A member of the RNA family "terC RNA" from Caulobacter sp., 59 nucleotides long.
RNA sequence: CAUGCGGGCCGGGCCCCUCUGGCGAGUGAUGCAAGCACUCGUGAUGUCGGACCGCAUCG
Numbered sequence: 001c002a003u004g005c006g007g008g009c010c011g012g013g014c015c016c017c018u019c020u021g022g023c024g025a026g027u028g029a030u031g032c033a034a035g036c037a038c039u040c041g042u043g044a045u046g047u048c049g050g051a052c053c054g055c056a057u058c059g
Stems, first nucleotide, its partner, number of pairs: 006053002009050004022042007

Rfam classes the family as a cis-regulatory element. The family's consensus secondary structure is taken from published work.